[Rfam]
RNA: Yeast U1 spliceosomal RNA
Organism: Kluyveromyces lactis
RNA sequence: AUACUUACCUUAAGAUGUCAACAGAGAUCAUGAAGUUUGUUGACCGGGUAUGAGGUUUUCAAGGAAAUACCGGAAUGGUAUUGUUUUCUCGGAGAUGAUACUUACAGCUUUUACAUUUACAUUUUAUCUGUACGGUUUUCCUGCAAUCCACACAUAUUUGGCAAACCUGGUACCUGCUGACAUUUCGUUCUCCCGUUACUUUUUUGGAGGCCUUGGUUUAACCUCGACUCCACUAGAGUAGCCCUUUUUUCCUUCUGCCUGGAGAAGAAUGGUACUGAUUACAAGUCAGUGCUGGGAGAGUCAUCGCUGUGGCCAGUUUAGUUUCAUUUUAAUGAUCUGGGCUCAAGGAAUGUCAUGAAAGGCUGACUUACUAGUCUCUGAUCUAUUCAUUAACUUGUUUACAGGUUUAUGGGUGAGAGGUAGAAACUUUGAGUCAGAAAUUCUGUCAUUUCUCCGGUUCAGGAAACUUGUUCAGAAAGGCUGCAUCCGUGGUAGAAAUGGGUGGAUCUUAUAAUUUUUGAGUAUUUC
Numbered sequence: 001a002u003a004c005u006u007a008c009c010u011u012a013a014g015a016u017g018u019c020a021a022c023a024g025a026g027a028u029c030a031u032g033a034a035g036u037u038u039g040u041u042g043a044c045c046g047g048g049u050a051u052g053a054g055g056u057u058u059u060c061a062a063g064g065a066a067a068u069a070c071c072g073g074a075a076u077g078g079u080a081u082u083g084u085u086u087u088c089u090c091g092g093a094g095a096u097g098a099u100a101c102u103u104a105c106a107g108c109u110u111u112u113a114c115a116u117u118u119a120c121a122u123u124u125u126a127u128c129u130g131u132a133c134g135g136u137u138u139u140c141c142u143g144c145a146a147u148c149c150a151c152a153c154a155u156a157u158u159u160g161g162c163a164a165a166c167c168u169g170g171u172a173c174c175u176g177c178u179g180a181c182a183u184u185u186c187g188u189u190c191u192c193c194c195g196u197u198a199c200u201u202u203u204u205u206g207g208a209g210g211c212c213u214u215g216g217u218u219u220a221a222c223c224u225c226g227a228c229u230c231c232a233c234u235a236g237a238g239u240a241g242c243c244c245u246u247u248u249u250u251c252c253u254u255c256u257g258c259c260u261g262g263a264g265a266a267g268a269a270u271g272g273u274a275c276u277g278a279u280u281a282c283a284a285g286u287c288a289g290u291g292c293u294g295g296g297a298g299a300g301u302c303a304u305c306g307c308u309g310u311g312g313c314c315a316g317u318u319u320a321g322u323u324u325c326a327u328u329u330u331a332a333u334g335a336u337c338u339g340g341g342c343u344c345a346a347g348g349a350a351u352g353u354c355a356u357g358a359a360a361g362g363c364u365g366a367c368u369u370a371c372u373a374g375u376c377u378c379u380g381a382u383c384u385a386u387u388c389a390u391u392a393a394c395u396u397g398u399u400u401a402c403a404g405g406u407u408u409a410u411g412g413g414u415g416a417g418a419g420g421u422a423g424a425a426a427c428u429u430u431g432a433g434u435c436a437g438a439a440a441u442u443c444u445g446u447c448a449u450u451u452c453u454c455c456g457g458u459u460c461a462g463g464a465a466a467c468u469u470g471u472u473c474a475g476a477a478a479g480g481c482u483g484c485a486u487c488c489g490u491g492g493u494a495g496a497a498a499u500g501g502g503u504g505g506a507u508c509u510u511a512u513a514a515u516u517u518u519u520g521a522g523u524a525u526u527u528c
Stems, first nucleotide, its partner, number of pairs: 010514003013509003017044009045176007053168001055167001057165003074158003181500006189299006195242007205232005215223003252267005272292007460470004